Rfam assigns this 350-nucleotide sequence from Enteroscipio rubneri to the family "Bacterial RNase P class A". The source organism's lineage runs through Bacteria, Actinomycetota, Coriobacteriia, Eggerthellales and Enteroscipio. The match comes from Rfam's covariance-model search (292 bits).
RNA sequence: CGAGCGGGCCAGGCGAUCGCGCGCCCAUCGGGCGUGAGGAAAGUCCGGGCUCCGCAGGGCAGGAUGCCAGCUAACGGCUGGGCGGGGCGACCCGACGGAAAGUGCCGCAGAAAAGAAGACUCCCCCGCGUCCUUGCGACGGCGGGAGAAAAGCUGAAACGGUGCGGUAAGAGCGCACCAGCGCGUCGGCGACGGCGCGGCUUGGCAAACCCCAUCCGGAGCAAGCGCAAAUAGGAACGCGAUACGGUGGCCCGCCGUGCGUUCGGGUUGCGUGCUUGAGGCGUGCGGCGACGCACGUUCGAGAUAAAUGAUCGUCCCCGACAGAACCCGGCUUAUCGGCCCGCUCGCAUC
Numbered sequence: 001c002g003a004g005c006g007g008g009c010c011a012g013g014c015g016a017u018c019g020c021g022c023g024c025c026c027a028u029c030g031g032g033c034g035u036g037a038g039g040a041a042a043g044u045c046c047g048g049g050c051u052c053c054g055c056a057g058g059g060c061a062g063g064a065u066g067c068c069a070g071c072u073a074a075c076g077g078c079u080g081g082g083c084g085g086g087g088c089g090a091c092c093c094g095a096c097g098g099a100a101a102g103u104g105c106c107g108c109a110g111a112a113a114a115g116a117a118g119a120c121u122c123c124c125c126c127g128c129g130u131c132c133u134u135g136c137g138a139c140g141g142c143g144g145g146a147g148a149a150a151a152g153c154u155g156a157a158a159c160g161g162u163g164c165g166g167u168a169a170g171a172g173c174g175c176a177c178c179a180g181c182g183c184g185u186c187g188g189c190g191a192c193g194g195c196g197c198g199g200c201u202u203g204g205c206a207a208a209c210c211c212c213a214u215c216c217g218g219a220g221c222a223a224g225c226g227c228a229a230a231u232a233g234g235a236a237c238g239c240g241a242u243a244c245g246g247u248g249g250c251c252c253g254c255c256g257u258g259c260g261u262u263c264g265g266g267u268u269g270c271g272u273g274c275u276u277g278a279g280g281c282g283u284g285c286g287g288c289g290a291c292g293c294a295c296g297u298u299c300g301a302g303a304u305a306a307a308u309g310a311u312c313g314u315c316c317c318c319g320a321c322a323g324a325a326c327c328c329g330g331c332u333u334a335u336c337g338g339c340c341c342g343c344u345c346g347c348a349u350c
Stems, first nucleotide, its partner, number of pairs: 001346010011335001012315007020036007041333003045330005050220004057252004062216005067081005082096001083094004097211002102209002104205003120152002123147001125145002130140001160178006180200001181198007224272004234263006243257005279298008
Clan: RNaseP clan.
The family's consensus secondary structure is taken from published work.